[Rfam]
RNA sequence: CCGGGUGCCUUCUGAGGACCCGGUUAUCGGGCGCCGGAUACGGUGUCCGUGCGCUCGUAACCAUAUUGCUCGAAAGGAGGAUGUGGCUAUGACCA
Numbered sequence: 001c002c003g004g005g006u007g008c009c010u011u012c013u014g015a016g017g018a019c020c021c022g023g024u025u026a027u028c029g030g031g032c033g034c035c036g037g038a039u040a041c042g043g044u045g046u047c048c049g050u051g052c053g054c055u056c057g058u059a060a061c062c063a064u065a066u067u068g069c070u071c072g073a074a075a076g077g078a079g080g081a082u083g084u085g086g087c088u089a090u091g092a093c094c095a
Stems, first nucleotide, its partner, number of pairs: 001023006008017002028049008055092005061086007069079003

Background: Rfam assigns this 95-nucleotide sequence from Bradyrhizobium ivorense to the family "Repression of heat shock gene expression (ROSE) element". The source organism's lineage runs through Bacteria, Pseudomonadota, Hyphomicrobiales, Nitrobacteraceae and Bradyrhizobium. Its family is annotated with regulation of translation and response to temperature stimulus in the Gene Ontology. A reference for the family is Nocker et al. (2001), "A mRNA-based thermosensor controls expression of rhizobial heat shock genes", Nucleic Acids Res. This family represents a 5' UTR cis-regulatory element found in heat shock mRNAs and is known as the ROSE (repression of heat shock gene expression) element. The ROSE element is a negative regulator of heat shock gene expression. Rfam 15.1 lists 381 matches to the family in 262 species. The base pairs follow the family's consensus structure, which is taken from published work.